[Rfam]
RNA: SAM (S-adenosyl methionine) riboswitch aptamer
Organism: Janibacter indicus
RNA sequence: GGUCACGAGAUCCAGCGUCAAGCCCCGGCUUGCUGGGCGGCAACCCUCCACUCGCGGUGGGGUGCUCCGGGUGAGGACCUGGCUCCGGUCGUCGCGGCCGGAGCAAGCGCGAGGC
Numbered sequence: 001g002g003u004c005a006c007g008a009g010a011u012c013c014a015g016c017g018u019c020a021a022g023c024c025c026c027g028g029c030u031u032g033c034u035g036g037g038c039g040g041c042a043a044c045c046c047u048c049c050a051c052u053c054g055c056g057g058u059g060g061g062g063u064g065c066u067c068c069g070g071g072u073g074a075g076g077a078c079c080u081g082g083c084u085c086c087g088g089u090c091g092u093c094g095c096g097g098c099c100g101g102a103g104c105a106a107g108c109g110c111g112a113g114g115c
Stems, first nucleotide, its partner, number of pairs: 001079004009038001011037006021030002039066003044062003048057002082104010